[Rfam]
RNA sequence: CUUUUGGGGUGCAUUUUGUUCAGUUAUGUUCAAUAAAAUAAUACAUCACUGGGCAAAGUGUGUCUCAAAAU
Numbered sequence: 001c002u003u004u005u006g007g008g009g010u011g012c013a014u015u016u017u018g019u020u021c022a023g024u025u026a027u028g029u030u031c032a033a034u035a036a037a038a039u040a041a042u043a044c045a046u047c048a049c050u051g052g053g054c055a056a057a058g059u060g061u062g063u064c065u066c067a068a069a070a071u
Stems, first nucleotide, its partner, number of pairs: 005067010017055003021051004